[Rfam]
RNA: U5 spliceosomal RNA
Organism: Mikania micrantha
RNA sequence: AGCCAUGCAAUGAGCACAAAGCGAACUAUUCUUUCGCCUUUUACUAAAGAAUACCGUGUGCUGGUUGCUUAUAAUGGCAUAUUGGCAUAUGUCAAUUUUUGGAGAGUCCCUUUUUAAAGAGAGGGCU
Numbered sequence: 001a002g003c004c005a006u007g008c009a010a011u012g013a014g015c016a017c018a019a020a021g022c023g024a025a026c027u028a029u030u031c032u033u034u035c036g037c038c039u040u041u042u043a044c045u046a047a048a049g050a051a052u053a054c055c056g057u058g059u060g061c062u063g064g065u066u067g068c069u070u071a072u073a074a075u076g077g078c079a080u081a082u083u084g085g086c087a088u089a090u091g092u093c094a095a096u097u098u099u100u101g102g103a104g105a106g107u108c109c110c111u112u113u114u115u116a117a118a119g120a121g122a123g124g125g126c127u
Stems, first nucleotide, its partner, number of pairs: 003077004008067004013062006027053008103127001108125005